[Rfam]
Notes:
This 57-nucleotide RNA sequence from Merluccius polli belongs to the Rfam family "Plastid-psbA-3 3UTR RNA". It scores 51 bits against the family's covariance model. Rfam classes the family as a cis-regulatory element. Taxonomically the source falls in Merluccius (Eukaryota, Acanthomorphata, Gadiformes, Merlucciidae). From the family's description: Plastid psbA-3 is a non-coding RNA (ncRNA) present in plastids. It was identified in inverted repeat sequences in the 3 prime untranslate region (3UTR) of photosystem II quinone-binding protein (psbA). On this family, see Richter et al., Plant Commun 2023: "Retrograde signaling in plants: A critical review focusing on the GUN pathway and beyond".
RNA sequence: AAAGGAACAAUACGCCACCGCUUUCUAAAAAAGCGGUGGCGUAUUGUUCCUUUCUUU
Numbered sequence: 001a002a003a004g005g006a007a008c009a010a011u012a013c014g015c016c017a018c019c020g021c022u023u024u025c026u027a028a029a030a031a032a033g034c035g036g037u038g039g040c041g042u043a044u045u046g047u048u049c050c051u052u053u054c055u056u057u
Stems, first nucleotide, its partner, number of pairs: 001053014019035006